[Rfam]
RNA sequence: CCCCCCUGAACCGUCUCACUCCACUUUCUGAACGGUCAGGGCAAAGAAACGGAGGAUAACCGUCAGACUUGCGGUGCGGCAGUGUGGAGACCUGUCGUAAUGUGGCGCGGAAGUAAUCGCCGGCUGCGAGGUGAUAUCGUGCGGAGGCAGUAUCACUAAAGUCUAAGAAUAUGGCA
Numbered sequence: 001c002c003c004c005c006c007u008g009a010a011c012c013g014u015c016u017c018a019c020u021c022c023a024c025u026u027u028c029u030g031a032a033c034g035g036u037c038a039g040g041g042c043a044a045a046g047a048a049a050c051g052g053a054g055g056a057u058a059a060c061c062g063u064c065a066g067a068c069u070u071g072c073g074g075u076g077c078g079g080c081a082g083u084g085u086g087g088a089g090a091c092c093u094g095u096c097g098u099a100a101u102g103u104g105g106c107g108c109g110g111a112a113g114u115a116a117u118c119g120c121c122g123g124c125u126g127c128g129a130g131g132u133g134a135u136a137u138c139g140u141g142c143g144g145a146g147g148c149a150g151u152a153u154c155a156c157u158a159a160a161g162u163c164u165a166a167g168a169a170u171a172u173g174g175c176a
Base pairs, nucleotide, nucleotide: 006040007039010036011035012034013033014032016031017030018029060074061073062072063071065164066163067162068161069160070159075099076098077097078096079095080094081093082092084091085090102127103126104125105124106123108122109121110120130157131156132155133154134153135152136151137150140149141148142147
Dot-bracket structure: .....((..(((((.(((..........))))))))..))...................[[[[.((((((]]]]((((((((.((....))))))))))..(((((.(((.........))))))))..((((((((..(((....))))))))))).))))))............
malK-I RNA: a 176-nucleotide RNA. It is annotated as a cis-regulatory element. Pairs were carried over by alignment from the consensus structure, which is taken from published work.